Rfam assigns this 71-nucleotide RNA sequence from Clostridium fungisolvens to the family "RAGATH-18 RNA". Actinobacteria, Firmicutes, Fusobacteria, Thermotogae (1 example). Rfam classes the family as a small RNA.
RNA sequence: CCUAUGGAGUGUUAGACCAGACGAAACUAUAUGUUUUAUCGGUAUAUAGAUCGUGCACGGUGAAGUAGGAA
Numbered sequence: 001c002c003u004a005u006g007g008a009g010u011g012u013u014a015g016a017c018c019a020g021a022c023g024a025a026a027c028u029a030u031a032u033g034u035u036u037u038a039u040c041g042g043u044a045u046a047u048a049g050a051u052c053g054u055g056c057a058c059g060g061u062g063a064a065g066u067a068g069g070a071a
Stems, first nucleotide, its partner, number of pairs: 001069005009058004022053003030046003
The base pairs follow the family's consensus structure, which is taken from published work.